[Rfam]
Rfam assigns this 72-nucleotide RNA sequence from Camelus dromedarius to the family "Small nucleolar RNA SNORD113/SNORD114 family".
From the family's description: The imprinted human domain at 14q32 contains two clusters of tandemly repeated small nucleolar RNAs named 14q(I) and 14q(II) snoRNAs. These two clusters are named SNORD113 and SNORD114 respectively in the HGNC approved gene symbol nomenclature. The snoRNAs found in both clusters are clearly related and are represented here by a single family. These snoRNAs are intron encoded and are processed from the tissue-specific non-coding human MEG8 RNA, which lies downstream of the imprinted genes DLK1 and GTL2. snoRNAs 14q(I) and 14q(II) differ from previously identified C/D box snoRNAs in their expression profiles and lack of complementarity to rRNA and snRNA. Homologues of these snoRNAs are found in the imprinted non-coding mouse transcript Rian, and in the rat non-coding Bsr (brain-specific repetitive) RNA.
The family is grouped with related families in Rfam's "SNORD74 clan".
The family's RNA type in Rfam is C/D-box small nucleolar RNA.
The match comes from Rfam's covariance-model search (88 bits).

RNA sequence: UGGAUCAAUGAUGACUACUGGUGGCGUAUGAGUUGUGUACGAUGAAUACAUGACUGGAAGUCUGAGGUCCAA
Numbered sequence: 001u002g003g004a005u006c007a008a009u010g011a012u013g014a015c016u017a018c019u020g021g022u023g024g025c026g027u028a029u030g031a032g033u034u035g036u037g038u039a040c041g042a043u044g045a046a047u048a049c050a051u052g053a054c055u056g057g058a059a060g061u062c063u064g065a066g067g068u069c070c071a072a
Base pairs, nucleotide, nucleotide: 002070003069004068005067006066